[Rfam]
RNA sequence: GGAGGCGUGCGAGCGCCUGGUGGCCUCCCUGAUCUUCAAAAUCAGUGGACCCGAGCAUCUCGGGUCGGCGGGUUCGAUUCCCGUACGCCUCC
Numbered sequence: 001g002g003a004g005g006c007g008u009g010c011g012a013g014c015g016c017c018u019g020g021u022g023g024c025c026u027c028c029c030u031g032a033u034c035u036u037c038a039a040a041a042u043c044a045g046u047g048g049a050c051c052c053g054a055g056c057a058u059c060u061c062g063g064g065u066c067g068g069c070g071g072g073u074u075c076g077a078u079u080c081c082c083g084u085a086c087g088c089c090u091c092c
Base pairs, nucleotide, nucleotide: 001092002091003090004089005088006087007086008085009084011027012026013025015024016023017022029045030044031043032042033041048066049065050064051063052062069083070082071081072080

This 92-nucleotide RNA sequence from Thermomonospora umbrina belongs to the Rfam family "Selenocysteine transfer RNA". For this family Rfam cites "Eukaryotic selenocysteine tRNA has the 9/4 secondary structure" (Mizutani and Goto, FEBS Lett, 2000). Its family is annotated with triplet codon-amino acid adaptor activity in the Gene Ontology. The organism belongs to Thermomonospora, within Bacteria.